[Rfam]
RNA sequence: UCCAGUUUCGCAGGAGAAGGGCAACCGCCACGGCGGGUGUCUACCGAAGGCGCAAUCUCCCAUAAACGCUCAGGUACCUGUACUGCGAGGCUGAU
Numbered sequence: 001u002c003c004a005g006u007u008u009c010g011c012a013g014g015a016g017a018a019g020g021g022c023a024a025c026c027g028c029c030a031c032g033g034c035g036g037g038u039g040u041c042u043a044c045c046g047a048a049g050g051c052g053c054a055a056u057c058u059c060c061c062a063u064a065a066a067c068g069c070u071c072a073g074g075u076a077c078c079u080g081u082a083c084u085g086c087g088a089g090g091c092u093g094a095u
Stems, first nucleotide, its partner, number of pairs: 006090008020041004043075003046071002050069003056062001
The record is a 95-nucleotide RNA from Solimonas marina, which matches "Glycine riboswitch aptamer" in Rfam. The source organism's lineage runs through Bacteria, Pseudomonadota, Gammaproteobacteria, Nevskiales and Solimonas. This family represents the bacterial glycine riboswitch.